[Rfam]
RNA sequence: CUGCAGAGUAGAAGCGUUCAGCGACGGCCGUCCCAUCGCCUGCCGUCGCCCGGAAAUUGCUCGAGUC
Numbered sequence: 001c002u003g004c005a006g007a008g009u010a011g012a013a014g015c016g017u018u019c020a021g022c023g024a025c026g027g028c029c030g031u032c033c034c035a036u037c038g039c040c041u042g043c044c045g046u047c048g049c050c051c052g053g054a055a056a057u058u059g060c061u062c063g064a065g066u067c
Stems, first nucleotide, its partner, number of pairs: 006062005015052001018054002021049007